Rfam assigns this 136-nucleotide sequence from Caligus rogercresseyi to the family "Small nucleolar RNA snoR639/H1".
snoR639 or snoH1 belongs to the H/ACA class of snoRNAs which are thought to guide the sites of modification of uridines to pseudouridines. snoH1 is found in an intron of the mfl gene in Drosophila.
Rfam links the family to the GO terms RNA processing and nucleolus.
Rfam classes the family as an H/ACA-box small nucleolar RNA.
Pairs were carried over by alignment from the consensus structure.

RNA sequence: ACCCCACUUCAUUAAGCCGACUUGCUUAAUUCAUCCAUGUUUUGCGAGUGUGCUAAGGGUGGGCAAAUCAAAAUGUUAAUUUGUGUAUGGUGUAUGGCUAUAUACAAUGGAAUAUACCAAAGAAAUUUUAUCAACA
Numbered sequence: 001a002c003c004c005c006a007c008u009u010c011a012u013u014a015a016g017c018c019g020a021c022u023u024g025c026u027u028a029a030u031u032c033a034u035c036c037a038u039g040u041u042u043u044g045c046g047a048g049u050g051u052g053c054u055a056a057g058g059g060u061g062g063g064c065a066a067a068u069c070a071a072a073a074u075g076u077u078a079a080u081u082u083g084u085g086u087a088u089g090g091u092g093u094a095u096g097g098c099u100a101u102a103u104a105c106a107a108u109g110g111a112a113u114a115u116a117c118c119a120a121a122g123a124a125a126u127u128u129u130a131u132c133a134a135c136a
Stems, first nucleotide, its partner, number of pairs: 020051002022047004077130003088119007098110003